[Rfam]
RNA sequence: UCUAGGGUGUGGCACAAACACAGAGAAGCUAUCACCUCAGA
Number, nucleotide and partner (000 for none) at each position: 001u041002c040003u039004a000005g037006g036007g035008u034009g032010u031011g030012g029013c028014a000015c000016a000017a000018a000019c000020a000021c000022a000023g000024a000025g000026a000027a000028g013029c012030u011031a010032u009033c000034a008035c007036c006037u005038c000039a003040g002041a001
A member of the RNA family "MAT2A 3'UTR stem loop D" from Vombatus ursinus, 41 nucleotides long. Pairs were carried over by alignment from the consensus structure, which is taken from published work. NCBI's taxonomy places the organism under Eukaryota, Teleostomi, Mammalia, Vombatidae, Vombatus. The literature on the family includes a 2011 paper in Genome Res by Parker et al., "New families of human regulatory RNA structures identified by comparative analysis of vertebrate genomes".